[Rfam]
SmY spliceosomal RNA: an 80-nucleotide sequence from Caenorhabditis latens. The match comes from Rfam's covariance-model search (41 bits). On this family, see MacMorris et al., RNA 2007: "A novel family of C. elegans snRNPs contains proteins associated with trans-splicing". The source organism's lineage runs through Eukaryota, Bilateria, Nematoda, Rhabditina and Caenorhabditis. The family's consensus secondary structure is taken from published work.
RNA sequence: UUGGCGCUCCUCGUAUUCUAUGGGCCUUCUUUCAAGACCCUUUAAUAAAUUUUGGAGUCCCGUCAUUCCGAUGGCGGGUG
Numbered sequence: 001u002u003g004g005c006g007c008u009c010c011u012c013g014u015a016u017u018c019u020a021u022g023g024g025c026c027u028u029c030u031u032u033c034a035a036g037a038c039c040c041u042u043u044a045a046u047a048a049a050u051u052u053u054g055g056a057g058u059c060c061c062g063u064c065a066u067u068c069c070g071a072u073g074g075c076g077g078g079u080g
Base pairs, nucleotide, nucleotide: 022040023039024038026036027035028034059078060077061076062075063074064073065072066071